[Rfam]
Annotation: The record is a 61-nucleotide RNA from Pristionchus pacificus, which matches "mir-8364 microRNA precursor family" in Rfam. The base pairs follow the family's consensus structure, which was predicted with RNAalifold. The organism belongs to Pristionchus, within Eukaryota. A search with the family's covariance model found it, with a score of 68 bits.
RNA sequence: UCUUCAUUCCGCACACUCACUCGCCUCACUGACCGGCGAGAGAGUGUGAGGAAUGAAGAGA
Numbered sequence: 001u002c003u004u005c006a007u008u009c010c011g012c013a014c015a016c017u018c019a020c021u022c023g024c025c026u027c028a029c030u031g032a033c034c035g036g037c038g039a040g041a042g043a044g045u046g047u048g049a050g051g052a053a054u055g056a057a058g059a060g061a
Base pairs, nucleotide, nucleotide: 001059002058003057004056005055006054007053010050012048013047014046015045016044017043020040021039022038